[Rfam]
RNA sequence: UAGUGGGAGGGAGGUGGCAUGGCAGGUAGUAUGGUAAUAGUGGCCCAUACUUCCAGCCAUGCUACUUUCCUCACCCUACA
Dot-bracket structure: (((.(.((((..((((((((..(.((.((((................)))).)).)..))))))))..)))).).)))..

A member of the RNA family "mir-9186 microRNA precursor family" from Cnephaeus nilssonii, 80 nucleotides long. The base pairs follow the family's consensus structure, which was predicted with RNAalifold. Taxonomically the source falls in Cnephaeus (Eukaryota, Eumetazoa, Dipnotetrapodomorpha, Amniota).